[Rfam]
RNA sequence: GCUGAGGAUUGGGUCUUUGCGGGCGAGAUGUAGCUUAAGAAAAAACCAACUGGCCUACAAAGUCCCAGUUCUCGGC
Numbered sequence: 001g002c003u004g005a006g007g008a009u010u011g012g013g014u015c016u017u018u019g020c021g022g023g024c025g026a027g028a029u030g031u032a033g034c035u036u037a038a039g040a041a042a043a044a045a046c047c048a049a050c051u052g053g054c055c056u057a058c059a060a061a062g063u064c065c066c067a068g069u070u071c072u073c074g075g076c
Stems, first nucleotide, its partner, number of pairs: 003074006010067004015062005021056004026051002029048002
Record summary:
The family of this 76-nucleotide RNA sequence from Leptobrachium leishanense is "mir-193 microRNA precursor family". The match comes from Rfam's covariance-model search (76 bits). Pairs were carried over by alignment from the consensus structure, which was predicted with RNAalifold. The organism belongs to Leptobrachium, within Eukaryota.